RNA sequence: ACCCAACCCCAGGGCUGCUGACUCCCAGUCCAGUGCUCGUGAUCCCAGCCGGGCCCUGAACUAGGGGUCUGGAGGCCUGGGUUUGAAUGUC
Numbered sequence: 001a002c003c004c005a006a007c008c009c010c011a012g013g014g015c016u017g018c019u020g021a022c023u024c025c026c027a028g029u030c031c032a033g034u035g036c037u038c039g040u041g042a043u044c045c046c047a048g049c050c051g052g053g054c055c056c057u058g059a060a061c062u063a064g065g066g067g068u069c070u071g072g073a074g075g076c077c078u079g080g081g082u083u084u085g086a087a088u089g090u091c
Base pairs, nucleotide, nucleotide: 008081009080010079011078012077013076015074016073018071020069021068022067023066024065025064028061029060031058032057033056035054036053037052038051
mir-345 microRNA precursor family: a 91-nucleotide sequence from Cavia porcellus.
Gene Ontology terms of the family: miRNA-mediated post-transcriptional gene silencing and RISC complex.
The organism belongs to Cavia, within Eukaryota.
The literature on the family includes a 2010 paper in Mol Hum Reprod by Ahn et al., "MicroRNA transcriptome in the newborn mouse ovaries determined by massive parallel sequencing".
A search with the family's covariance model found it, with a score of 97 bits.